[Rfam]
RNA sequence: ACCUGUCACGGGCGCUGUCUGCGCCCGGGGCAUCGGACACACAUGUGCCACGGGAAGAUCUGGGCACUUCAGGGCGUU
Numbered sequence: 001a002c003c004u005g006u007c008a009c010g011g012g013c014g015c016u017g018u019c020u021g022c023g024c025c026c027g028g029g030g031c032a033u034c035g036g037a038c039a040c041a042c043a044u045g046u047g048c049c050a051c052g053g054g055a056a057g058a059u060c061u062g063g064g065c066a067c068u069u070c071a072g073g074g075c076g077u078u
Base pairs, nucleotide, nucleotide: 004032005031006030007029009027010026011025012024013023014022015021045067046066047065048064049063052060